RNA sequence: UAGUAGAUCUAAGUAUUUACUCUAAAUCACUGGUGCGAACUCAUCUUUACUUGAUUAAGCGAUUUUGUAAAUUCGCGAGGCACUGUGGAUGCUUUCUUUUAUAGAGAGCAUUUUUUAUAUAU
Numbered sequence: 001u002a003g004u005a006g007a008u009c010u011a012a013g014u015a016u017u018u019a020c021u022c023u024a025a026a027u028c029a030c031u032g033g034u035g036c037g038a039a040c041u042c043a044u045c046u047u048u049a050c051u052u053g054a055u056u057a058a059g060c061g062a063u064u065u066u067g068u069a070a071a072u073u074c075g076c077g078a079g080g081c082a083c084u085g086u087g088g089a090u091g092c093u094u095u096c097u098u099u100u101a102u103a104g105a106g107a108g109c110a111u112u113u114u115u116u117a118u119a120u121a122u
Stems, first nucleotide, its partner, number of pairs: 007027002010024002012021003031085005040079003043055003059076004064071001088112010